[Rfam]
RNA: RT-15 RNA
RNA sequence: AUGCGCUUGCUGCUCCGUCGUCACGGCGGCAGGGCCAAUGCGCUUGAUGAUCUGGUCACGCCGCUGGCUCACAAGGCCACCGAUAUGCGCACUAGAGGAAACCAACGGCCUAGGCCGCCCAGGUCCCGCGCAGUUUCUCCGCUGAUCCGGCAAGCCUUCGGCGGGGCGACGUGGAUAGCGUGAUGUCUCG
Dot-bracket structure: ...(((.....((((.(((((....))))).))))....))).............((((((((.(((((.....))))).))...(((((....(.(((..((..((((....))))....))))))))))).((.(((((((((...((....)).))))))))).))........)))))).......